Trypanosomatid snoRNA TB11Cs3H1: a 72-nucleotide RNA from Trypanosoma brucei. By type it is an H/ACA-box small nucleolar RNA. A reference for the family is Liang et al. (2005), "A genome-wide analysis of C/D and H/ACA-like small nucleolar RNAs in Trypanosoma brucei reveals a trypanosome-specific pattern of rRNA modification", RNA. Gene Ontology terms of the family: nucleolus and RNA processing. The organism belongs to Trypanosoma brucei gambiense, within Eukaryota.
[Rfam]
RNA sequence: AAGGCCCUCAUGAACAAUCCCACCGGUGAGUGUACUCAUUUAGUCUCGUGCGUGGACCUAGGAGCGCCAAGA
Numbered sequence: 001a002a003g004g005c006c007c008u009c010a011u012g013a014a015c016a017a018u019c020c021c022a023c024c025g026g027u028g029a030g031u032g033u034a035c036u037c038a039u040u041u042a043g044u045c046u047c048g049u050g051c052g053u054g055g056a057c058c059u060a061g062g063a064g065c066g067c068c069a070a071g072a
Stems, first nucleotide, its partner, number of pairs: 003068003007064003020055004024050002028041005